Rfam assigns this 136-nucleotide RNA sequence from Silurus meridionalis to the family "Small nucleolar RNA SNORA57". The family's consensus secondary structure was predicted with PFOLD. The literature on the family includes a 2003 paper in Nucleic Acids Res by Vitali et al., "Identification of 13 novel human modification guide RNAs". U99 belongs to the H/ACA class of snoRNAs which are thought to guide the sites of modification of uridines to pseudouridines, the target for this family is unknown. A search with the family's covariance model found it, with a score of 88 bits. It is annotated as an H/ACA-box small nucleolar RNA. Gene Ontology terms of the family: nucleolus and RNA processing.
RNA sequence: CCUCCUUUCUUGGCAUGCACGUAGUUUGCUCAGUACUCGUGUGUGUAUGUGUGGAGGAAUAGAAAUUUCCAGUGCUAUGUCUUCGGUGCCAGCAAGAUCCCAUCAGCUGGUUCUAUCCUCAAUCACUGGUACAGCU
Numbered sequence: 001c002c003u004c005c006u007u008u009c010u011u012g013g014c015a016u017g018c019a020c021g022u023a024g025u026u027u028g029c030u031c032a033g034u035a036c037u038c039g040u041g042u043g044u045g046u047a048u049g050u051g052u053g054g055a056g057g058a059a060u061a062g063a064a065a066u067u068u069c070c071a072g073u074g075c076u077a078u079g080u081c082u083u084c085g086g087u088g089c090c091a092g093c094a095a096g097a098u099c100c101c102a103u104c105a106g107c108u109g110g111u112u113c114u115a116u117c118c119u120c121a122a123u124c125a126c127u128g129g130u131a132c133a134g135c136u
Base pairs, nucleotide, nucleotide: 001057002056003055004054005053014045015044016043017042018041019040021038023037024036025035070128071127072126073125074124089110090109091108092107093106